This 92-nucleotide sequence from Candida maltosa belongs to the Rfam family "Small nucleolar RNA R38". Lineage of the source: Eukaryota > Opisthokonta > Dikarya > Ascomycota > Candida maltosa. snoR38 is a C/D box small nucleolar RNA conserved across yeast, human, Arabidopsis and rice. It is encoded in the intron of elongation factor-1 gamma in both pombe and cerevisiae. snoR38 guides the methylation of 2'-O-ribose sites in 28S rRNA. Gene Ontology terms of the family: nucleolus and RNA processing. By type it is a C/D-box small nucleolar RNA.

[Rfam]
RNA sequence: UUUUUUUACAAUGAUGAGAAACCUUUUUCAAUAUUAAUACAGUUAUCCCUGUCUUAAUAAACUAUGUCGAGAAUUUAUAAUCUGAAAGAAAA
Numbered sequence: 001u002u003u004u005u006u007u008a009c010a011a012u013g014a015u016g017a018g019a020a021a022c023c024u025u026u027u028u029c030a031a032u033a034u035u036a037a038u039a040c041a042g043u044u045a046u047c048c049c050u051g052u053c054u055u056a057a058u059a060a061a062c063u064a065u066g067u068c069g070a071g072a073a074u075u076u077a078u079a080a081u082c083u084g085a086a087a088g089a090a091a092a
Stems, first nucleotide, its partner, number of pairs: 001092007